[Rfam]
RNA sequence: GAUUGCAACGAUGACCAAGUAAAAUUCAAGCUCAACAGACCGGAAUGCAGGAUUCUGAGAAUUUUGCGUGUCGAUGAAUCACUUACUGAGCAGUC
Dot-bracket structure: ((((((...................................................................................))))))
The family of this 95-nucleotide sequence from Lactuca sativa is "Small nucleolar RNA Z107/R87". On this family, see Barneche et al., J Mol Biol 2001: "Identification of 66 box C/D snoRNAs in Arabidopsis thaliana: extensive gene duplications generated multiple isoforms predicting new ribosomal RNA 2'-O-methylation sites". Pairs were carried over by alignment from the consensus structure, which was predicted with RNAfold. It scores 60 bits against the family's covariance model. NCBI's taxonomy places the organism under Eukaryota, Euphyllophyta, Gunneridae, Cichorieae, Lactuca. Rfam classes the family as a C/D-box small nucleolar RNA. The family has 9 seed sequences and 783 matches in Rfam 15.1.